[Rfam]
RNA sequence: GCUCGCGGUCCAAGGCUACCUCCUCCUCCCAAGCCAAGGACCGCGUCGAGGCAAGGCCACCUCCUCCCAGCCUUGUCUCAUCCAAACGACGCCCGCCGGUACCUCCUCCCACCGGCGGGCGAUCGUU
Numbered sequence: 001g002c003u004c005g006c007g008g009u010c011c012a013a014g015g016c017u018a019c020c021u022c023c024u025c026c027u028c029c030c031a032a033g034c035c036a037a038g039g040a041c042c043g044c045g046u047c048g049a050g051g052c053a054a055g056g057c058c059a060c061c062u063c064c065u066c067c068c069a070g071c072c073u074u075g076u077c078u079c080a081u082c083c084a085a086a087c088g089a090c091g092c093c094c095g096c097c098g099g100u101a102c103c104u105c106c107u108c109c110c111a112c113c114g115g116c117g118g119g120c121g122a123u124c125g126u127u
Base pairs, nucleotide, nucleotide: 007042008041009040011038014035015034016033017032048079049078050077051076052075053074054073055072056071057070090121091120092119093118094117095116096115097114098113099112
Rfam assigns this 127-nucleotide sequence from Roseibium aquae to the family "Alphaproteobacterial ar14".
A search with the family's covariance model found it, with a score of 72 bits.
Rfam's curators write: Smr14C2 was renamed NfeR1 (Nodule Formation Efficiency RNA) highly expressed in salt stress and during the symbiotic interaction on legume roots.
The pairing is the family consensus, mapped onto this sequence.
The organism belongs to Roseibium, within Bacteria.